[Rfam]
RNA: Alphaproteobacterial sRNA BjrC1505
Organism: Zhengella mangrovi
RNA sequence: AGCGCGUUAACCGAGGCUUAACCCUGACGGUUCAUUACUGUGGGUAUCCAGUGAUCUGGAUUCGAACCUGAGUGGCUAGAGCCAUUCUGUUUGACGCCUCCCUGUAAAACUUCCACGGGCCGCUUCCCUUGAAGCGGCUCUUUUUUU
Numbered sequence: 001a002g003c004g005c006g007u008u009a010a011c012c013g014a015g016g017c018u019u020a021a022c023c024c025u026g027a028c029g030g031u032u033c034a035u036u037a038c039u040g041u042g043g044g045u046a047u048c049c050a051g052u053g054a055u056c057u058g059g060a061u062u063c064g065a066a067c068c069u070g071a072g073u074g075g076c077u078a079g080a081g082c083c084a085u086u087c088u089g090u091u092u093g094a095c096g097c098c099u100c101c102c103u104g105u106a107a108a109a110c111u112u113c114c115a116c117g118g119g120c121c122g123c124u125u126c127c128c129u130u131g132a133a134g135c136g137g138c139u140c141u142u143u144u145u146u147u
Base pairs, nucleotide, nucleotide: 002041003040004039005013006012014036015035019034021032023030024029046061047060048059049058070087071086072085073084074083075082094105095104096103115142117140118139119138120137121136122135123134124133125132